[Rfam]
This 92-nucleotide sequence from Varanus komodoensis belongs to the Rfam family "Small nucleolar SNORD12/SNORD106". The base pairs follow the family's consensus structure, which was predicted with RNAalifold.
RNA sequence: UCAGUGGUACAUGAUGACUUAAUCUUUUUUCCCCAUCAUAUCGGCCAUGCUGAUCAAACCUGUAUUCUAGCCAAAUGGUCUGAUUCCACUGA
Numbered sequence: 001u002c003a004g005u006g007g008u009a010c011a012u013g014a015u016g017a018c019u020u021a022a023u024c025u026u027u028u029u030u031c032c033c034c035a036u037c038a039u040a041u042c043g044g045c046c047a048u049g050c051u052g053a054u055c056a057a058a059c060c061u062g063u064a065u066u067c068u069a070g071c072c073a074a075a076u077g078g079u080c081u082g083a084u085u086c087c088a089c090u091g092a
Stems, first nucleotide, its partner, number of pairs: 001092007009084001
By type it is a C/D-box small nucleolar RNA. On this family, see Huttenhofer et al., EMBO J 2001: "RNomics: an experimental approach that identifies 201 candidates for novel, small, non-messenger RNAs in mouse". A search with the family's covariance model found it, with a score of 64 bits.